[Rfam]
U11 spliceosomal RNA: a 133-nucleotide RNA from Oreochromis niloticus. The organism belongs to Oreochromis, within Eukaryota.
RNA sequence: AAAAAGGGCUUCUGCUAUGUUUGGCACAGGAGAGGUGGGGUGUCUAUCUCUCUUGCGGAAUCGCCAUCAAGAGAUUUCGGAAGCAUAAUUUUUACCUUUGGGGCUGCCGAUGAUCACAUAUCUUGGCGCCCCU
Numbered sequence: 001a002a003a004a005a006g007g008g009c010u011u012c013u014g015c016u017a018u019g020u021u022u023g024g025c026a027c028a029g030g031a032g033a034g035g036u037g038g039g040g041u042g043u044c045u046a047u048c049u050c051u052c053u054u055g056c057g058g059a060a061u062c063g064c065c066a067u068c069a070a071g072a073g074a075u076u077u078c079g080g081a082a083g084c085a086u087a088a089u090u091u092u093u094a095c096c097u098u099u100g101g102g103g104c105u106g107c108c109g110a111u112g113a114u115c116a117c118a119u120a121u122c123u124u125g126g127c128g129c130c131c132c133u
Base pairs, nucleotide, nucleotide: 008084009083010082011081012080013026014025015024016023017022027055028054029053030052031051032050033049034048035047036046037045038044056079057078058077059076060075061074062073101131102130103129104128106127107126108125109124110123112122113121114120